[Rfam]
Rfam assigns this 91-nucleotide sequence from Companilactobacillus versmoldensis to the family "tRNA". Pairs were carried over by alignment from the consensus structure, which is taken from published work. The match comes from Rfam's covariance-model search (56 bits). Taxonomically the source falls in Companilactobacillus versmoldensis (Bacteria, Bacillati, Bacilli, Companilactobacillus). The family's RNA type in Rfam is transfer RNA.
RNA sequence: GGAGAAUUGUCCGAGUGGCUGAAGGAGCAUGAUUGGAAAUCAUGUAUACGGGUUUUAACCUGUAUCAAGGGUUCAAAUCCCUUAUUCUCCG
Numbered sequence: 001g002g003a004g005a006a007u008u009g010u011c012c013g014a015g016u017g018g019c020u021g022a023a024g025g026a027g028c029a030u031g032a033u034u035g036g037a038a039a040u041c042a043u044g045u046a047u048a049c050g051g052g053u054u055u056u057a058a059c060c061u062g063u064a065u066c067a068a069g070g071g072u073u074c075a076a077a078u079c080c081c082u083u084a085u086u087c088u089c090c091g
Stems, first nucleotide, its partner, number of pairs: 001090007010026003028044005067083005